[Rfam]
RNA sequence: CUCCUCUGAUGACCUCAGUUUUGUGCUACUUGUGUUUGGGCCACUGAUUACUGAUGGGAUUGAGGAACUGAGGAG
Numbered sequence: 001c002u003c004c005u006c007u008g009a010u011g012a013c014c015u016c017a018g019u020u021u022u023g024u025g026c027u028a029c030u031u032g033u034g035u036u037u038g039g040g041c042c043a044c045u046g047a048u049u050a051c052u053g054a055u056g057g058g059a060u061u062g063a064g065g066a067a068c069u070g071a072g073g074a075g
Base pairs, nucleotide, nucleotide: 001075002074003073004072
Shown here is a 75-nucleotide RNA from Hemibagrus wyckioides, a member of the family "Small nucleolar RNA SNORD66". By type it is a C/D-box small nucleolar RNA. Its family is annotated with RNA processing and nucleolus in the Gene Ontology. The literature on the family includes a 2001 paper in EMBO J by Huttenhofer et al., "RNomics: an experimental approach that identifies 201 candidates for novel, small, non-messenger RNAs in mouse". Rfam describes the family as follows. snoRNA HBII-142 is part of the C/D family of snoRNAs. It is the human orthologue of the mouse MBII-142 snoRNA and is predicted to guide 2'O-ribose methylation of small 18S rRNA at residue C1272. The family's consensus secondary structure was predicted with RNAalifold.